[Rfam]
RNA: istR Hfq binding RNA
RNA sequence: CGUCAAAAUUCGUGCCGAAAUUGCGUGUUCUUCGUAGAACGCGUAUACUUUUUGCGUUGACAUAACACAGUGUGUCCAGCGGAAACCAACCGCACAACGCUGAUGAAAACCUCGCUCCGGCGGGGUUUUUU
Numbered sequence: 001c002g003u004c005a006a007a008a009u010u011c012g013u014g015c016c017g018a019a020a021u022u023g024c025g026u027g028u029u030c031u032u033c034g035u036a037g038a039a040c041g042c043g044u045a046u047a048c049u050u051u052u053u054g055c056g057u058u059g060a061c062a063u064a065a066c067a068c069a070g071u072g073u074g075u076c077c078a079g080c081g082g083a084a085a086c087c088a089a090c091c092g093c094a095c096a097a098c099g100c101u102g103a104u105g106a107a108a109a110c111c112u113c114g115c116u117c118c119g120g121c122g123g124g125g126u127u128u129u130u131u
Stems, first nucleotide, its partner, number of pairs: 002061005011056002017051003022045010068102004075096001079093004105130011